[Rfam]
RNA sequence: ACCAUCCUUUUCUUGGAGUUGGCACUAUUGUCUAGGGAGCAUAUAGUGAGGGCAGUACUGCUAACACCUAUGCAAUGCAUGGCAUCUAUUAGAACUCUGCUUUACCUUGGAGUUUUCAGAAAA
Numbered sequence: 001a002c003c004a005u006c007c008u009u010u011u012c013u014u015g016g017a018g019u020u021g022g023c024a025c026u027a028u029u030g031u032c033u034a035g036g037g038a039g040c041a042u043a044u045a046g047u048g049a050g051g052g053c054a055g056u057a058c059u060g061c062u063a064a065c066a067c068c069u070a071u072g073c074a075a076u077g078c079a080u081g082g083c084a085u086c087u088a089u090u091a092g093a094a095c096u097c098u099g100c101u102u103u104a105c106c107u108u109g110g111a112g113u114u115u116u117c118a119g120a121a122a123a
Base pairs, nucleotide, nucleotide: 006018008016009015022061023060024059027056028055029054030053031052032051033050039047040046085110086109090104091103092102093101095099
Rfam assigns this 123-nucleotide RNA sequence from Otolemur garnettii to the family "U4atac minor spliceosomal RNA". The organism belongs to Otolemur, within Eukaryota. Clan: U4 clan. U4atac is an essential component of the minor U12-type spliceosome complex which is required for removal of the rarer class of eukaryotic introns (AT-AC, U12-type). Rfam links the family to the GO terms pre-mRNA 5'-splice site binding, U4atac snRNP and spliceosomal tri-snRNP complex assembly. The literature on the family includes a 2005 paper in RNA by Lorkovic et al., "Evolutionary conservation of minor U12-type spliceosome between plants and humans".